[Rfam]
RNA sequence: GGAGGAGACUCCGAAGAGUGCCUUCCCGUCCGGGGGGCCACCGAAGGAGCAAGCCGCGCCCCGACGGUCGGGGUCGCUGCGAAUCUCUCAGGUCUUCGACGGAGGGGGCAGG
Numbered sequence: 001g002g003a004g005g006a007g008a009c010u011c012c013g014a015a016g017a018g019u020g021c022c023u024u025c026c027c028g029u030c031c032g033g034g035g036g037g038c039c040a041c042c043g044a045a046g047g048a049g050c051a052a053g054c055c056g057c058g059c060c061c062c063g064a065c066g067g068u069c070g071g072g073g074u075c076g077c078u079g080c081g082a083a084u085c086u087c088u089c090a091g092g093u094c095u096u097c098g099a100c101g102g103a104g105g106g107g108g109c110a111g112g
Base pairs, nucleotide, nucleotide: 009104010103011102012101013100020038021037022036023035024034025033040093041092042091043089044088047087048086049085053080054079
Annotation: Shown here is a 112-nucleotide sequence from Hasllibacter halocynthiae, a member of the family "Glycine riboswitch aptamer". It scores 50 bits against the family's covariance model. The source organism's lineage runs through Bacteria, Pseudomonadati, Pseudomonadota, Rhodobacterales and Hasllibacter.